[Rfam]
RNA sequence: GGUCUGGUCGGAAACCAGACAGGCAGAAGGAG
Numbered sequence: 001g002g003u004c005u006g007g008u009c010g011g012a013a014a015c016c017a018g019a020c021a022g023g024c025a026g027a028a029g030g031a032g
Base pairs, nucleotide, nucleotide: 001020003019004018005017006016007015008014
RNA: L31-Coriobacteria ribosomal protein leader
Organism: Olsenella uli